[Rfam]
Shown here is a 64-nucleotide RNA sequence, a member of the family "lysM-Prevotella RNA". It is one of the family's seed sequences.

RNA sequence: CCAUUUGAAAGGGACAUAAGAAUCAGUCCCGUGCCACUGCGGCAUCUGAGUUUAAUAAAAUAAC
Numbered sequence: 001c002c003a004u005u006u007g008a009a010a011g012g013g014a015c016a017u018a019a020g021a022a023u024c025a026g027u028c029c030c031g032u033g034c035c036a037c038u039g040c041g042g043c044a045u046c047u048g049a050g051u052u053u054a055a056u057a058a059a060a061u062a063a064c
Stems, first nucleotide, its partner, number of pairs: 011030005032044004